[Rfam]
RNA sequence: AGCGUAUUUUGCGAUGGCGGAGCUCGACCGCCGGUCGAAGUGAUGGUGGGCUUUAUUGAUGCGCAUCGGAAUGCGCACGGGGUCGAGCCGAUCUGCAGCGUUCUGCCGAUUGCCCCC
Numbered sequence: 001a002g003c004g005u006a007u008u009u010u011g012c013g014a015u016g017g018c019g020g021a022g023c024u025c026g027a028c029c030g031c032c033g034g035u036c037g038a039a040g041u042g043a044u045g046g047u048g049g050g051c052u053u054u055a056u057u058g059a060u061g062c063g064c065a066u067c068g069g070a071a072u073g074c075g076c077a078c079g080g081g082g083u084c085g086a087g088c089c090g091a092u093c094u095g096c097a098g099c100g101u102u103c104u105g106c107c108g109a110u111u112g113c114c115c116c117c
Stems, first nucleotide, its partner, number of pairs: 016032005079116004089112002092109002095106004

Rfam assigns this 117-nucleotide RNA sequence to the family "ALIL pseudoknot". By type it is a cis-regulatory element. A search with the family's covariance model found it, with a score of 110 bits.